[Rfam]
RNA sequence: AUGCGUGUUGUGGGCAUUGGCAAAGUAAACCCUUGCAUCUUUUUCAAGCCUCUGAUUAGCAUUCUGAGUCCAUUUGCUGAAAAGUAGUGAUCUCAUCCCUUAGUUU
Number, nucleotide and partner (000 for none) at each position: 001a106002u000003g104004c103005g100006u000007g000008u000009u000010g000011u000012g000013g000014g000015c000016a000017u000018u000019g000020g000021c000022a000023a000024a000025g000026u000027a000028a000029a000030c000031c000032c000033u000034u000035g000036c000037a000038u000039c000040u000041u000042u000043u000044u000045c000046a000047a000048g000049c000050c000051u000052c000053u000054g000055a000056u000057u072058a000059g070060c000061a000062u000063u000064c000065u000066g000067a000068g000069u000070c059071c000072a057073u000074u000075u000076g000077c000078u000079g000080a000081a000082a000083a000084g000085u000086a000087g000088u000089g000090a000091u000092c000093u000094c000095a000096u000097c000098c000099c000100u005101u000102a000103g004104u003105u000106u001
RNA: Plant small nucleolar RNA R71